Small nucleolar RNA SNORD103/SNORD85: an 83-nucleotide RNA sequence from Nothocercus julius. Rfam links the family to the GO terms RNA processing and nucleolus.
[Rfam]
RNA sequence: UCUGGCAGUGAUGACGCACUUGCCCUCACUGAGAACACUGUUCACUAAUGAGAGCUUUAAGUACUCAGCAGAGCUGAGCCAGA
Numbered sequence: 001u002c003u004g005g006c007a008g009u010g011a012u013g014a015c016g017c018a019c020u021u022g023c024c025c026u027c028a029c030u031g032a033g034a035a036c037a038c039u040g041u042u043c044a045c046u047a048a049u050g051a052g053a054g055c056u057u058u059a060a061g062u063a064c065u066c067a068g069c070a071g072a073g074c075u076g077a078g079c080c081a082g083a
Stems, first nucleotide, its partner, number of pairs: 001083006
Source information: The source organism's lineage runs through Eukaryota, Eumetazoa, Chordata, Dipnotetrapodomorpha and Nothocercus. On this family, see Huttenhofer et al., EMBO J 2001: "RNomics: an experimental approach that identifies 201 candidates for novel, small, non-messenger RNAs in mouse".